Shown here is a 76-nucleotide RNA from Acipenser ruthenus, a member of the family "mir-10 microRNA precursor family". NCBI's taxonomy places the organism under Eukaryota, Teleostomi, Actinopteri, Chondrostei, Acipenser. The literature on the family includes a 2001 paper in Science by Lee and Ambros, "An extensive class of small RNAs in Caenorhabditis elegans".

RNA sequence: CUACAUACUCCCUUAGAUCCGAAUUUGUGACCCCUUUUCUGUUCACACAAAUUCGGAUCUACAGGGUAUAUAUAGG
Numbered sequence: 001c002u003a004c005a006u007a008c009u010c011c012c013u014u015a016g017a018u019c020c021g022a023a024u025u026u027g028u029g030a031c032c033c034c035u036u037u038u039c040u041g042u043u044c045a046c047a048c049a050a051a052u053u054c055g056g057a058u059c060u061a062c063a064g065g066g067u068a069u070a071u072a073u074a075g076g
Base pairs, nucleotide, nucleotide: 002074003073005071006070007069010066011065012064015060016059017058018057019056020055021054022053023052024051025050026049027048028047029046